[Rfam]
RNA sequence: GGUCAUGCUUUUCCACAGCUUUCUUGAACUUUCUUUUACUGCUUAGGAAGCUCAAGAAAGCUGUGGGAGAACAUGGCAG
Numbered sequence: 001g002g003u004c005a006u007g008c009u010u011u012u013c014c015a016c017a018g019c020u021u022u023c024u025u026g027a028a029c030u031u032u033c034u035u036u037u038a039c040u041g042c043u044u045a046g047g048a049a050g051c052u053c054a055a056g057a058a059a060g061c062u063g064u065g066g067g068a069g070a071a072c073a074u075g076g077c078a079g
Stems, first nucleotide, its partner, number of pairs: 003076005013066003017062006024055004029050005